[Rfam]
RNA: Small nucleolar RNA SNORA42/SNORA80 family
Organism: Myotis lucifugus
RNA sequence: GAGUGGUCAGAGCAAAUGACAAUCUUUAAAACAUGAAAUAGGCUCAUAGUGGACCCAUGCCAGAGGAAGUUGCAGCCUCAAACCAUUGCCCAGCCUCCUUACCCUUGGGCUGUGAGCACUGAAGGGAGCUGUACAGUA
Numbered sequence: 001g002a003g004u005g006g007u008c009a010g011a012g013c014a015a016a017u018g019a020c021a022a023u024c025u026u027u028a029a030a031a032c033a034u035g036a037a038a039u040a041g042g043c044u045c046a047u048a049g050u051g052g053a054c055c056c057a058u059g060c061c062a063g064a065g066g067a068a069g070u071u072g073c074a075g076c077c078u079c080a081a082a083c084c085a086u087u088g089c090c091c092a093g094c095c096u097c098c099u100u101a102c103c104c105u106u107g108g109g110c111u112g113u114g115a116g117c118a119c120u121g122a123a124g125g126g127a128g129c130u131g132u133a134c135a136g137u138a
Base pairs, nucleotide, nucleotide: 001060003058004057005055006054007053008052016047017046018045019044073131074130075129076128078126084121085120089116091112092111093110094109095108096107